[Rfam]
RNA: Small nucleolar RNA SNORD58
Organism: Pedionomus torquatus
RNA sequence: UUGUGGUGAUGACCAUCUUAGGACACCUUUGGAACACCCAUGGGGGAAAAAAAAAAGUUAUUUCUGAGCAAC
Numbered sequence: 001u002u003g004u005g006g007u008g009a010u011g012a013c014c015a016u017c018u019u020a021g022g023a024c025a026c027c028u029u030u031g032g033a034a035c036a037c038c039c040a041u042g043g044g045g046g047a048a049a050a051a052a053a054a055a056a057g058u059u060a061u062u063u064c065u066g067a068g069c070a071a072c
Base pairs, nucleotide, nucleotide: 001071002070003069004068